[Rfam]
RNA sequence: UCGAGGUGACGAUAGAAAAUUCACGUCUUUCAAUCCCCUGAAACAUAUUGUGAUGUUGUUGUGUUAUUUGGACAGGUUUUGAUUGA
Numbered sequence: 001u002c003g004a005g006g007u008g009a010c011g012a013u014a015g016a017a018a019a020u021u022c023a024c025g026u027c028u029u030u031c032a033a034u035c036c037c038c039u040g041a042a043a044c045a046u047a048u049u050g051u052g053a054u055g056u057u058g059u060u061g062u063g064u065u066a067u068u069u070g071g072a073c074a075g076g077u078u079u080u081g082a083u084u085g086a
Stems, first nucleotide, its partner, number of pairs: 001086004

Rfam assigns this 86-nucleotide sequence from Raphanus sativus to the family "Small nucleolar RNA snoR14". The match comes from Rfam's covariance-model search (61 bits). The source organism's lineage runs through Eukaryota, Streptophyta, Magnoliopsida, Pentapetalae and Raphanus. The literature on the family includes a 2001 paper in RNA by Brown et al., "Multiple snoRNA gene clusters from Arabidopsis". Clan: SNORD110 clan. Rfam 15.1 lists 668 matches to the family in 221 species. The base pairs follow the family's consensus structure. Gene Ontology terms of the family: nucleolus and RNA processing.